[Rfam]
RNA sequence: UAGUGUAAUAGGGCUUUCAUGGGUGGUGGUUCACCCCUUUUUUGAAAGAAGGGGGUGAUAAUAUGACGGUAUUCGAAGCAUUGGUUUUGAUGAUCUCUUUCUCAACCUUAAUCGUUGCCAUACUGUCUCAACAAAAAAAGUAACCACCCAUUGAACGCCUAGCAAGCCUUUGGGUUGGUUACUUCUCUAACUCAAACGAGUGAGCUGCCCCCUUGAAGGGCUGUUACACAUUAGACCGUUCCAUGUACCAGCAUGGUCG
Numbered sequence: 001u002a003g004u005g006u007a008a009u010a011g012g013g014c015u016u017u018c019a020u021g022g023g024u025g026g027u028g029g030u031u032c033a034c035c036c037c038u039u040u041u042u043u044g045a046a047a048g049a050a051g052g053g054g055g056u057g058a059u060a061a062u063a064u065g066a067c068g069g070u071a072u073u074c075g076a077a078g079c080a081u082u083g084g085u086u087u088u089g090a091u092g093a094u095c096u097c098u099u100u101c102u103c104a105a106c107c108u109u110a111a112u113c114g115u116u117g118c119c120a121u122a123c124u125g126u127c128u129c130a131a132c133a134a135a136a137a138a139a140g141u142a143a144c145c146a147c148c149c150a151u152u153g154a155a156c157g158c159c160u161a162g163c164a165a166g167c168c169u170u171u172g173g174g175u176u177g178g179u180u181a182c183u184u185c186u187c188u189a190a191c192u193c194a195a196a197c198g199a200g201u202g203a204g205c206u207g208c209c210c211c212c213u214u215g216a217a218g219g220g221c222u223g224u225u226a227c228a229c230a231u232u233a234g235a236c237c238g239u240u241c242c243a244u245g246u247a248c249c250a251g252c253a254u255g256g257u258c259g
Base pairs, nucleotide, nucleotide: 003229004228005227007225008224009223011221012206013205014204015203016202020150021149022148023147025144031058032057033056035053036052037051038050039049065127066126067125068124069123070122071121079092080091103117104116162188209220210219211218237259238258241256242255243254244253245252246251
Rfam assigns this 259-nucleotide RNA from Bacilli bacterium VT-13-104 to the family "BsrG".
bsrE, bsrG and bsrH pair through intermolecular interactions with antisense sRNAs. They form type I toxin/antitoxin system that includes an mRNA encoding for a short, toxic peptide (bsrE, bsrG and bsrH) and an antitoxin that is comprised of an antisense RNA. bsrG encodes a 39-amino-acid toxin, and the 180 nucleotide antisense sRNA called SR4 acts as the antitoxin (they overlap by 123 nucleotides). SR4 interaction with the 3'UTR of bsrG RNA promotes bsrG degradation and inhibits its translation.
The family's RNA type in Rfam is small RNA.
Rfam 15.1 lists 614 matches to the family in 343 species.